[Rfam]
RNA sequence: GAGCCCCGAUAGGGGGCUACGGGAUAUCUGAGGAAACUCCAGCAUCCUGGCUCUAGGGAAUUCCACGAGGAAUAGGGAUAAUAUCCCUGGCAACCGCACAGAAAAUCCCCUCUAUGAACUCUAUGAAGAUGAAUCUUAGGGUAUGCUAGGUAACUGGCAUAGCUGGAAGAAGAGAUCAUAGGGGGUUGAAAUGCGGACCUCCCUGGAUUAAGUAGGGAAAUUAGUGAGCUAGAGCCCGAAAUUUCCCUAGACGCUAAGCUAAAUCCCCCACAUACAGAAGCUGGGUUAUUGUCGGGGCUC
Numbered sequence: 001g002a003g004c005c006c007c008g009a010u011a012g013g014g015g016g017c018u019a020c021g022g023g024a025u026a027u028c029u030g031a032g033g034a035a036a037c038u039c040c041a042g043c044a045u046c047c048u049g050g051c052u053c054u055a056g057g058g059a060a061u062u063c064c065a066c067g068a069g070g071a072a073u074a075g076g077g078a079u080a081a082u083a084u085c086c087c088u089g090g091c092a093a094c095c096g097c098a099c100a101g102a103a104a105a106u107c108c109c110c111u112c113u114a115u116g117a118a119c120u121c122u123a124u125g126a127a128g129a130u131g132a133a134u135c136u137u138a139g140g141g142u143a144u145g146c147u148a149g150g151u152a153a154c155u156g157g158c159a160u161a162g163c164u165g166g167a168a169g170a171a172g173a174g175a176u177c178a179u180a181g182g183g184g185g186u187u188g189a190a191a192u193g194c195g196g197a198c199c200u201c202c203c204u205g206g207a208u209u210a211a212g213u214a215g216g217g218a219a220a221u222u223a224g225u226g227a228g229c230u231a232g233a234g235c236c237c238g239a240a241a242u243u244u245c246c247c248u249a250g251a252c253g254c255u256a257a258g259c260u261a262a263a264u265c266c267c268c269c270a271c272a273u274a275c276a277g278a279a280g281c282u283g284g285g286u287u288a289u290u291g292u293c294g295g296g297g298c299u300c
Base pairs, nucleotide, nucleotide: 001300002299003298005296006295007294008293009292012269013268014267015266016265020030021029022028023027035287036286037285039284040283041282042281043280044208045207046206047205049236050235051234052232055204056203057202058201059200060073061072062071063070064069074088075087076086077085078084089199090198094196095195096194097193108185109184110183111182112181113180114179115178116177117176134167135166212252213251218244219243220242221241222240
Dot-bracket structure: (((.(((((..(((((...((((...))))....[[[.[[[[[((((.[[[[..((((((((((....)))))(((((.....)))))((...((((..........((((((((((................((..............................))........)))))))))).......)))).)))))))))))...((....(((((.........].]]]...)))))......))............)))))..........]]]]]]]]....))))).)))
Archaeal RNase P: a 300-nucleotide RNA sequence from Candidatus Acidianus copahuensis. Clan: RNaseP clan. The literature on the family includes a 1998 paper in Annu Rev Biochem by Frank and Pace, "Ribonuclease P: unity and diversity in a tRNA processing ribozyme". The match comes from Rfam's covariance-model search (132 bits). Taxonomically the source falls in Acidianus (Archaea, Thermoproteati, Sulfolobales, Sulfolobaceae).